[Rfam]
RNA: Mu-gpT-DE RNA
RNA sequence: CCCUGACAGUCGCAUCCCGCGGCUGACAUUAGCCUAGACAGGAGAUCUCCAUG
Numbered sequence: 001c002c003c004u005g006a007c008a009g010u011c012g013c014a015u016c017c018c019g020c021g022g023c024u025g026a027c028a029u030u031a032g033c034c035u036a037g038a039c040a041g042g043a044g045a046u047c048u049c050c051a052u053g
Stems, first nucleotide, its partner, number of pairs: 002042004007025005